[Rfam]
RNA sequence: GGGUGCAGCGACGUCCGCUGCAGGCAUCGCGACGGUCGGGCCGCCGUCG
Numbered sequence: 001g002g003g004u005g006c007a008g009c010g011a012c013g014u015c016c017g018c019u020g021c022a023g024g025c026a027u028c029g030c031g032a033c034g035g036u037c038g039g040g041c042c043g044c045c046g047u048c049g
Stems, first nucleotide, its partner, number of pairs: 005021006030049007

nhaA-I RNA: a 49-nucleotide sequence.